Notes: The record is a 265-nucleotide RNA sequence, which matches "Bacterial large signal recognition particle RNA" in Rfam. Rfam classes the family as a non-coding RNA gene. It scores 78 bits against the family's covariance model.
RNA sequence: UGGUAGGCCGGGCGGUUUGGGGUCGCCUCUUUCUGGAAAUCCUCGUGAUGCCGGAGCCGUCAACCAGCUGGACGGGGAGGGUUCUCGGACACGGCGCCGCUCACCCGGGUUGUCGAUGGUCUGUCCUCCGGGAUGCCGGGGGCUGUGAACCGGGUCAGGCCCUGGCGGGAGCAGCCCUAAGCAGUCUCCGUCAUGUUCGGAGGGUAGCGGACCUGAGACCUGGGGCGGUGGUCGGCCGGAAACCCUCCUCAACCUCUGGGAACCA
Numbered sequence: 001u002g003g004u005a006g007g008c009c010g011g012g013c014g015g016u017u018u019g020g021g022g023u024c025g026c027c028u029c030u031u032u033c034u035g036g037a038a039a040u041c042c043u044c045g046u047g048a049u050g051c052c053g054g055a056g057c058c059g060u061c062a063a064c065c066a067g068c069u070g071g072a073c074g075g076g077g078a079g080g081g082u083u084c085u086c087g088g089a090c091a092c093g094g095c096g097c098c099g100c101u102c103a104c105c106c107g108g109g110u111u112g113u114c115g116a117u118g119g120u121c122u123g124u125c126c127u128c129c130g131g132g133a134u135g136c137c138g139g140g141g142g143c144u145g146u147g148a149a150c151c152g153g154g155u156c157a158g159g160c161c162c163u164g165g166c167g168g169g170a171g172c173a174g175c176c177c178u179a180a181g182c183a184g185u186c187u188c189c190g191u192c193a194u195g196u197u198c199g200g201a202g203g204g205u206a207g208c209g210g211a212c213c214u215g216a217g218a219c220c221u222g223g224g225g226c227g228g229u230g231g232u233c234g235g236c237c238g239g240a241a242a243c244c245c246u247c248c249u250c251a252a253c254c255u256c257u258g259g260g261a262a263c264c265a
Base pairs, nucleotide, nucleotide: 001265002263004261006058007057008056010028011027012026013025014024015023016022017021033054034053035052036051038049064259065258066257067256070253074250075249076248077247078246080245081244083242085240086239088237093233094232095230096229097228098227099226100225104224105223107221108220109219118213119212120211121210122209123208124207125203126202127201128200129199130198132194134193135192137190138189141186142185143184144183145182146181152177153176154175155174160169161168162167